RNA sequence: AGACUGGAAAAUCUCUGCAGGCAAAUGUGAUGUCACUGAAGAAAUCACACACUUACCCGUAGAGAUUCUACAGUCU
Numbered sequence: 001a002g003a004c005u006g007g008a009a010a011a012u013c014u015c016u017g018c019a020g021g022c023a024a025a026u027g028u029g030a031u032g033u034c035a036c037u038g039a040a041g042a043a044a045u046c047a048c049a050c051a052c053u054u055a056c057c058c059g060u061a062g063a064g065a066u067u068c069u070a071c072a073g074u075c076u
Base pairs, nucleotide, nucleotide: 003074004073005072006071010067011066012065013064014063015062016061017060020058021057023054024053026051027050028049029048
Rfam assigns this 76-nucleotide RNA from Macaca mulatta to the family "mir-216 microRNA precursor family". Rfam links the family to the GO terms RISC complex and miRNA-mediated post-transcriptional gene silencing. Pairs were carried over by alignment from the consensus structure, which was predicted with WAR. Its Rfam clan is "mir-216 clan".